[Rfam]
RNA sequence: CGGAUGGUAUUCGAAAGAAACUAUACCUUUUAGCUUCUAAAUUUUAAAAAGGUGCGCCCGAUGGCAUGCUCGUAUCAUUUUGAACGAGACUGUAU
Numbered sequence: 001c002g003g004a005u006g007g008u009a010u011u012c013g014a015a016a017g018a019a020a021c022u023a024u025a026c027c028u029u030u031u032a033g034c035u036u037c038u039a040a041a042u043u044u045u046a047a048a049a050a051g052g053u054g055c056g057c058c059c060g061a062u063g064g065c066a067u068g069c070u071c072g073u074a075u076c077a078u079u080u081u082g083a084a085c086g087a088g089a090c091u092g093u094a095u
Stems, first nucleotide, its partner, number of pairs: 002027002004024005010019002065092002068090001069088005075083003
Background: pan motif: a 95-nucleotide RNA sequence from Pseudobutyrivibrio xylanivorans. A search with the family's covariance model found it, with a score of 36 bits. Lineage of the source: Bacteria > Bacillati > Lachnospirales > Lachnospiraceae > Pseudobutyrivibrio xylanivorans. Pairs were carried over by alignment from the consensus structure, which is taken from published work.